[Rfam]
RNA: Small nucleolar RNA Z43
RNA sequence: GGAUGGUAACGAUUGUAUCGUGAAAGGUGUCGUUCGUCGUAACCGGCUCCGACUGGGGCCUUGCCGACCAUCCUGAUAUAUCACCAGCCAUAUUUUGAGUCC
Number, nucleotide and partner (000 for none) at each position: 001g102002g101003a100004u099005g000006g000007u000008a000009a000010c000011g000012a000013u000014u000015g000016u000017a000018u000019c000020g000021u000022g000023a000024a000025a000026g000027g000028u000029g000030u000031c000032g000033u000034u000035c000036g000037u000038c000039g000040u000041a000042a000043c000044c000045g000046g000047c000048u000049c057050c000051g000052a000053c000054u000055g000056g000057g049058g000059c000060c000061u000062u000063g000064c000065c000066g000067a000068c000069c000070a000071u000072c000073c000074u000075g000076a000077u000078a000079u000080a000081u000082c000083a000084c000085c000086a000087g000088c000089c000090a000091u000092a000093u000094u000095u000096u000097g000098a000099g004100u003101c002102c001